[Rfam]
Background
SAH (S-adenosyl-L-homocysteine) riboswitch aptamer: a 103-nucleotide RNA sequence from Lysobacter sp. A03. NCBI's taxonomy places the organism under Bacteria, Pseudomonadota, Lysobacterales, Lysobacteraceae, Lysobacter. Gene Ontology terms of the family: regulation of gene expression and S-adenosylhomocysteine metabolic process.

RNA sequence: UCUGCCGAGGGGCGCUGCGACCGUCUAUCAGGGACGGCCAGGCUUGGCAGGAUCGAUCGAGACCAUGCACGGUCUCCAUCCGCUUCAACGGCGCCCGGUUGCG
Numbered sequence: 001u002c003u004g005c006c007g008a009g010g011g012g013c014g015c016u017g018c019g020a021c022c023g024u025c026u027a028u029c030a031g032g033g034a035c036g037g038c039c040a041g042g043c044u045u046g047g048c049a050g051g052a053u054c055g056a057u058c059g060a061g062a063c064c065a066u067g068c069a070c071g072g073u074c075u076c077c078a079u080c081c082g083c084u085u086c087a088a089c090g091g092c093g094c095c096c097g098g099u100u101g102c103g
Base pairs, nucleotide, nucleotide: 002050003049004048005047006046007045008044021037022036023035024034025033026032